The record is a 138-nucleotide sequence from Oryza sativa, which matches "Small nucleolar RNA snoR77" in Rfam.
RNA sequence: AGGCAGCCCCUUUGUCUGAUUUCAAUGGCAAUGGAGGUGUUGCGUUGCUCGGAGAGUGAUUCUUCUGCUCUUCAGAUUAGCUGAGAGGGUAGGCUUGCUUUCCCUCGUUGAAGCUUGUCUAGUAGUCUUAAGAACAUU
Numbered sequence: 001a002g003g004c005a006g007c008c009c010c011u012u013u014g015u016c017u018g019a020u021u022u023c024a025a026u027g028g029c030a031a032u033g034g035a036g037g038u039g040u041u042g043c044g045u046u047g048c049u050c051g052g053a054g055a056g057u058g059a060u061u062c063u064u065c066u067g068c069u070c071u072u073c074a075g076a077u078u079a080g081c082u083g084a085g086a087g088g089g090u091a092g093g094c095u096u097g098c099u100u101u102c103c104c105u106c107g108u109u110g111a112a113g114c115u116u117g118u119c120u121a122g123u124a125g126u127c128u129u130a131a132g133a134a135c136a137u138u
Stems, first nucleotide, its partner, number of pairs: 002041004007037002009034002012031005062132003067127001069125001074120004080114003085106005